[Rfam]
RNA: SAM-I/IV (S-adenosyl methionine) riboswitch aptamer
RNA sequence: AAAUAUCAUCAGGACGGGAGUAAUCCCACCAACCGAGCUUAAGCCACGGUGGUUUGUCAAGUGACAGAUGAGCAGCAAAGCUGAAACUAUCUGAAGCC
Numbered sequence: 001a002a003a004u005a006u007c008a009u010c011a012g013g014a015c016g017g018g019a020g021u022a023a024u025c026c027c028a029c030c031a032a033c034c035g036a037g038c039u040u041a042a043g044c045c046a047c048g049g050u051g052g053u054u055u056g057u058c059a060a061g062u063g064a065c066a067g068a069u070g071a072g073c074a075g076c077a078a079a080g081c082u083g084a085a086a087c088u089a090u091c092u093g094a095a096g097c098c
Base pairs, nucleotide, nucleotide: 006071007070008069009068010067016027017026018025019024028053029052030051033049034048035047037044038043040095073083074082075081076080